[Rfam]
RNA sequence: AAAAAGGGUGCUUGCCUCUUGGCACACAGAGUUCUCAGACCCUGUGGAGUAUGGCUAUCAAGACAUACUCAGCACAUAAUUUUUGGACUGAGGAGCAGUUAGCUGUCUAGCACGCUGGCGCUUCU
Numbered sequence: 001a002a003a004a005a006g007g008g009u010g011c012u013u014g015c016c017u018c019u020u021g022g023c024a025c026a027c028a029g030a031g032u033u034c035u036c037a038g039a040c041c042c043u044g045u046g047g048a049g050u051a052u053g054g055c056u057a058u059c060a061a062g063a064c065a066u067a068c069u070c071a072g073c074a075c076a077u078a079a080u081u082u083u084u085g086g087a088c089u090g091a092g093g094a095g096c097a098g099u100u101a102g103c104u105g106u107c108u109a110g111c112a113c114g115c116u117g118g119c120g121c122u123u124c125u
Base pairs, nucleotide, nucleotide: 008075009074010073011072012071013024014023015022016021025046026045027044028043029042031040032039033038047070048069049068050067051066052065053064093123094122095121096120098119099118100117101116102115104114105113106112
RNA: U11 spliceosomal RNA